[Rfam]
RNA sequence: GCAGCCGCCGGACGGGGCGGGCCGCGAGGGUUGGGGAGCCCGAUGACCGGUUCGCCGCCGAGAUGGGACCGGGUCUUAGGGAGCCCGGCCCGAUCGCUCUGGCGAAGAAG
Numbered sequence: 001g002c003a004g005c006c007g008c009c010g011g012a013c014g015g016g017g018c019g020g021g022c023c024g025c026g027a028g029g030g031u032u033g034g035g036g037a038g039c040c041c042g043a044u045g046a047c048c049g050g051u052u053c054g055c056c057g058c059c060g061a062g063a064u065g066g067g068a069c070c071g072g073g074u075c076u077u078a079g080g081g082a083g084c085c086c087g088g089c090c091c092g093a094u095c096g097c098u099c100u101g102g103c104g105a106a107g108a109a110g
Stems, first nucleotide, its partner, number of pairs: 006104007013060003018054007028041005062095003065091003070087005
RNA: Actinomyces-1 RNA